RNA sequence: AUCGCUUCUCGGCUUAAUAGCUAAGAUCAAAGUGUAGUAUCUGUUCUUAUCGUAUUAACCUACGGUAUACAAUCGAAUGAUUGUAAUAUAGGUUAUCUGAUUUUUGGAACUCUGGAAGGACUCGGGGCUUGCUCCGACCUUUCGAGGGUCGUCUCAGCGUUGCACUGCUGCUGAGCACGGCCCAGUCUCC
Numbered sequence: 001a002u003c004g005c006u007u008c009u010c011g012g013c014u015u016a017a018u019a020g021c022u023a024a025g026a027u028c029a030a031a032g033u034g035u036a037g038u039a040u041c042u043g044u045u046c047u048u049a050u051c052g053u054a055u056u057a058a059c060c061u062a063c064g065g066u067a068u069a070c071a072a073u074c075g076a077a078u079g080a081u082u083g084u085a086a087u088a089u090a091g092g093u094u095a096u097c098u099g100a101u102u103u104u105u106g107g108a109a110c111u112c113u114g115g116a117a118g119g120a121c122u123c124g125g126g127g128c129u130u131g132c133u134c135c136g137a138c139c140u141u142u143c144g145a146g147g148g149u150c151g152u153c154u155c156a157g158c159g160u161u162g163c164a165c166u167g168c169u170g171c172u173g174a175g176c177a178c179g180g181c182c183c184a185g186u187c188u189c190c
Stems, first nucleotide, its partner, number of pairs: 007026003011022004048067006069084006114143006121136001124135004146183006153175006
About this RNA
Rfam assigns this 190-nucleotide RNA sequence from Caenorhabditis bovis to the family "U2 spliceosomal RNA". The family has 208 seed sequences and 71,512 matches in Rfam 15.1. Rfam's curators write: U2 is a small nuclear RNA (snRNA) component of the spliceosome (involved in pre-mRNA splicing). The source organism's lineage runs through Eukaryota, Opisthokonta, Protostomia, Rhabditoidea and Caenorhabditis. Its family is annotated with mRNA branch site recognition, pre-mRNA branch point binding and U2 snRNP in the Gene Ontology. Its Rfam clan is "U2 clan".